[Rfam]
RNA: Small Cajal body specific RNA 8
RNA sequence: UGGGAGGCUGAUACACAAAUUGGGCUGAAAUACUGCUCUAAUUGUCACCAUAAUUCCCUAGACUAAAAGCUGCCUUUUGAUGACCAAGACAAAUUAAGUGAAAUUGUAACGGACAGAUACGGGGGCAGACAAUU
Numbered sequence: 001u002g003g004g005a006g007g008c009u010g011a012u013a014c015a016c017a018a019a020u021u022g023g024g025c026u027g028a029a030a031u032a033c034u035g036c037u038c039u040a041a042u043u044g045u046c047a048c049c050a051u052a053a054u055u056c057c058c059u060a061g062a063c064u065a066a067a068a069g070c071u072g073c074c075u076u077u078u079g080a081u082g083a084c085c086a087a088g089a090c091a092a093a094u095u096a097a098g099u100g101a102a103a104u105u106g107u108a109a110c111g112g113a114c115a116g117a118u119a120c121g122g123g124g125g126c127a128g129a130c131a132a133u134u
Base pairs, nucleotide, nucleotide: 002058003057004056005055006054015045016044017043018042022038023037024036025035070128071127072126073125074124075123076122084112085111089107090106091105092104
Dot-bracket structure: .(((((........((((...((((.........))))...))))........)))))...........(((((((.......((...((((...........))))...)).........)))))))......